[Rfam]
RNA sequence: CAUGCACUGGGGGGAGUCCCUCAGCCUGGAUUGCGAGAGGCCGCAGGCCAGGCCAAAGGACCCCACUGGUGCAUG
Numbered sequence: 001c002a003u004g005c006a007c008u009g010g011g012g013g014g015a016g017u018c019c020c021u022c023a024g025c026c027u028g029g030a031u032u033g034c035g036a037g038a039g040g041c042c043g044c045a046g047g048c049c050a051g052g053c054c055a056a057a058g059g060a061c062c063c064c065a066c067u068g069g070u071g072c073a074u075g
Base pairs, nucleotide, nucleotide: 003073004072006070008068009067010066012064013063014062016061017060018059019058021056024053025052026051028049029048031046032045033044034043035042
Dot-bracket structure: ..((.(.(((.(((.((((.(..(((.((.(((((......))))).)).)))..).))))))).))).).))..

The family of this 75-nucleotide RNA sequence from Myotis davidii is "mir-9193 microRNA precursor family". Taxonomically the source falls in Myotis (Eukaryota, Eumetazoa, Craniata, Amniota). Its family is annotated with miRNA-mediated post-transcriptional gene silencing and RISC complex in the Gene Ontology. The base pairs follow the family's consensus structure, which was predicted with RNAalifold. Rfam 15.1 lists 6,008 matches to the family in 8 species.